[Rfam]
Record summary:
The family of this 95-nucleotide sequence from Anisodus acutangulus is "Small nucleolar RNA Z266". On this family, see Chen et al., Nucleic Acids Res 2003: "The high diversity of snoRNAs in plants: identification and comparative study of 120 snoRNA genes from Oryza sativa". The source organism's lineage runs through Eukaryota, Mesangiospermae, asterids, Hyoscyameae and Anisodus. Rfam links the family to the GO terms RNA processing and nucleolus.

RNA sequence: UUAUGGCAAGAGUGAUGGAAAAAUUAGAUGUGUGAAGGGUGAAUUCCUCUAUGAGCUCAAACAUUGAAGCUUAUUGAUAUUCUGACUUGCUUUUA
Numbered sequence: 001u002u003a004u005g006g007c008a009a010g011a012g013u014g015a016u017g018g019a020a021a022a023a024u025u026a027g028a029u030g031u032g033u034g035a036a037g038g039g040u041g042a043a044u045u046c047c048u049c050u051a052u053g054a055g056c057u058c059a060a061a062c063a064u065u066g067a068a069g070c071u072u073a074u075u076g077a078u079a080u081u082c083u084g085a086c087u088u089g090c091u092u093u094u095a
Base pairs, nucleotide, nucleotide: 001095003093005091006090007089008088009087010086